[Rfam]
RNA sequence: CCAGAGGGUUGGGCGACCGCGUUGCAAGCUUGCUUGUACCGAGGAAAGUCCGGGCUCCACGAAACGACGGUGCCGGGUAACGCCCGGCGAGGGUGACCUCAGGGAAAGUGCCACAGAGAGCAGACGGCCUGGCUUCAUGCCCGGUUACGGUGAAAGGGUGCGGUAAGAGCGCACCGCGCGGCUGGUAACAGUCGCGGCAUGGCAAACCCCACCGGGAGCAAGACCGAAUAGGGACGGCGCAUGGGCUUUGUUUCGGCCCGUCGUCCGGGUUGGUUGCUAGAGGCGGUGCGCGAGCGUCGUCCUAGAGGAAUGGUCGCACAGCUCUUCGGGGCGGACAGAACCCGGCUUACAGACCCUCUGGCAUU
Numbered sequence: 001c002c003a004g005a006g007g008g009u010u011g012g013g014c015g016a017c018c019g020c021g022u023u024g025c026a027a028g029c030u031u032g033c034u035u036g037u038a039c040c041g042a043g044g045a046a047a048g049u050c051c052g053g054g055c056u057c058c059a060c061g062a063a064a065c066g067a068c069g070g071u072g073c074c075g076g077g078u079a080a081c082g083c084c085c086g087g088c089g090a091g092g093g094u095g096a097c098c099u100c101a102g103g104g105a106a107a108g109u110g111c112c113a114c115a116g117a118g119a120g121c122a123g124a125c126g127g128c129c130u131g132g133c134u135u136c137a138u139g140c141c142c143g144g145u146u147a148c149g150g151u152g153a154a155a156g157g158g159u160g161c162g163g164u165a166a167g168a169g170c171g172c173a174c175c176g177c178g179c180g181g182c183u184g185g186u187a188a189c190a191g192u193c194g195c196g197g198c199a200u201g202g203c204a205a206a207c208c209c210c211a212c213c214g215g216g217a218g219c220a221a222g223a224c225c226g227a228a229u230a231g232g233g234a235c236g237g238c239g240c241a242u243g244g245g246c247u248u249u250g251u252u253u254c255g256g257c258c259c260g261u262c263g264u265c266c267g268g269g270u271u272g273g274u275u276g277c278u279a280g281a282g283g284c285g286g287u288g289c290g291c292g293a294g295c296g297u298c299g300u301c302c303u304a305g306a307g308g309a310a311u312g313g314u315c316g317c318a319c320a321g322c323u324c325u326u327c328g329g330g331g332c333g334g335a336c337a338g339a340a341c342c343c344g345g346c347u348u349a350c351a352g353a354c355c356c357u358c359u360g361g362c363a364u365u
Stems, first nucleotide, its partner, number of pairs: 001361010011350001013317006020041002023038006046348003050345005055218004063252004068214005073087005088102001089100004103209002108207002110203003125149002127145003131141003157175006176198001177196008222275004232266006243259005282301008
The record is a 365-nucleotide sequence from Sphingomonas sp. AX6, which matches "Bacterial RNase P class A" in Rfam. The source organism's lineage runs through Bacteria, Pseudomonadati, Pseudomonadota, Alphaproteobacteria and Sphingomonas. Gene Ontology terms of the family: ribonuclease P activity, dimeric ribonuclease P complex and tRNA processing. By type it is a ribozyme.